[Rfam]
Rfam assigns this 89-nucleotide sequence from Cellulomonas persica to the family "ZMP/ZTP riboswitch aptamer (pfl RNA motif)".
The match comes from Rfam's covariance-model search (54 bits).
The organism belongs to Cellulomonas, within Bacteria.
RNA sequence: CGUCACGGCCGUGACUGGCGAAGGUGGGACCGACCACCGGGGAGCGGCUGAAGUGCCCCUGCAGUGCACCGCCCGCCUGGGUGCCUGGG
Numbered sequence: 001c002g003u004c005a006c007g008g009c010c011g012u013g014a015c016u017g018g019c020g021a022a023g024g025u026g027g028g029a030c031c032g033a034c035c036a037c038c039g040g041g042g043a044g045c046g047g048c049u050g051a052a053g054u055g056c057c058c059c060u061g062c063a064g065u066g067c068a069c070c071g072c073c074c075g076c077c078u079g080g081g082u083g084c085c086u087g088g089g
Stems, first nucleotide, its partner, number of pairs: 003053001006050007015041002017077004024037004066084005